Rfam assigns this 99-nucleotide RNA sequence from Ruminococcus sp. CAG:563 to the family "Purine riboswitch aptamer". Taxonomically the source falls in Ruminococcus (Bacteria, Bacillati, Bacillota, Eubacteriales). It scores 51 bits against the family's covariance model.

RNA sequence: UACUAAGAAUAAUAUAUUGCCGAUAUAUUGCCGAAUGAAUGGCUCGGCAGUCUCUACGACAGUGCCGUAACUGUCACUAUUGGUGGAUGAUUGACAGCA
Numbered sequence: 001u002a003c004u005a006a007g008a009a010u011a012a013u014a015u016a017u018u019g020c021c022g023a024u025a026u027a028u029u030g031c032c033g034a035a036u037g038a039a040u041g042g043c044u045c046g047g048c049a050g051u052c053u054c055u056a057c058g059a060c061a062g063u064g065c066c067g068u069a070a071c072u073g074u075c076a077c078u079a080u081u082g083g084u085g086g087a088u089g090a091u092u093g094a095c096a097g098c099a
Stems, first nucleotide, its partner, number of pairs: 018085008029049006058075006